[Rfam]
RNA sequence: GCACAACACUAGGGGUACCGCCAAUGAGCGGUUGAGAUGAAUCUGUUCGAUUUGGUCCCUUGGAACCUGUAAGACAAUACUUGCGUAGGGAAAGUGAGAAUCCGAGAGG
Number, nucleotide and partner (000 for none) at each position: 001g000002c000003a000004c000005a000006a000007c096008a095009c094010u093011a060012g059013g058014g057015g000016u054017a032018c031019c030020g029021c028022c000023a000024a000025u000026g000027a000028g021029c020030g019031g018032u017033u000034g000035a000036g000037a000038u000039g053040a052041a051042u050043c049044u000045g000046u000047u000048c000049g043050a042051u041052u040053u039054g016055g000056u000057c014058c013059c012060u011061u000062g000063g000064a000065a000066c089067c088068u087069g086070u083071a082072a081073g080074a000075c000076a000077a000078u000079a000080c073081u072082u071083g070084c000085g000086u069087a068088g067089g066090g000091a000092a000093a010094g009095u008096g007097a000098g000099a000100a000101u000102c000103c000104g000105a000106g000107a000108g000109g000
Description
Rfam assigns this 109-nucleotide RNA from Lentilactobacillus parafarraginis to the family "TPP riboswitch aptamer (THI element)". Rfam links the family to the GO term thiamine pyrophosphate binding. The match comes from Rfam's covariance-model search (60 bits).